Annotation
Rfam assigns this 83-nucleotide RNA sequence from Odocoileus virginianus to the family "mir-1343 microRNA precursor family". Rfam 15.1 lists 238 matches to the family in 131 species.
[Rfam]
Nucleotides: 083
Stems, first nucleotide, its partner, number of pairs: 003081003007078002010075001013072001015070004020065004025060007034051005
Number, partner (000 for none) and nucleotide at each position: 001000c002000u003081g004080g005079c006000u007078u008077c009000g010075g011000u012000c013072c014000u015070g016069g017068g018067g019000a020065g021064c022063g023062g024000a025060c026059c027058c028057c029056g030055g031054g032000g033000c034051g035050g036049g037048u038047c039000a040000c041000c042000c043000c044000u045000c046000c047038g048037g049036c050035c051034u052000c053000u054031c055030u056029u057028g058027g059026g060025g061000c062023c063022c064021g065020c066000a067018c068017u069016c070015u071000c072013g073000c074000u075010c076000a077008g078007g079005g080004c081003c082000c083000g
NCBI's taxonomy places the organism under Eukaryota, Dipnotetrapodomorpha, Artiodactyla, Pecora, Odocoileus virginianus. Rfam links the family to the GO terms RISC complex and miRNA-mediated post-transcriptional gene silencing. Pairs were carried over by alignment from the consensus structure, which was predicted with RNAalifold.